[Rfam]
RNA: RAGATH-16 RNA
RNA sequence: CAUCUGCUAUCAGAUGCGUCGCUGGUGCAUGAGAGUUAGGCUCAUGGUAUCGAGAUAGUGAAAAUCCCCAGAG
Numbered sequence: 001c002a003u004c005u006g007c008u009a010u011c012a013g014a015u016g017c018g019u020c021g022c023u024g025g026u027g028c029a030u031g032a033g034a035g036u037u038a039g040g041c042u043c044a045u046g047g048u049a050u051c052g053a054g055a056u057a058g059u060g061a062a063a064a065u066c067c068c069c070a071g072a073g
Base pairs, nucleotide, nucleotide: 001016002015003014004013005012006011022071023070024069025068028046029045030044031043032042033041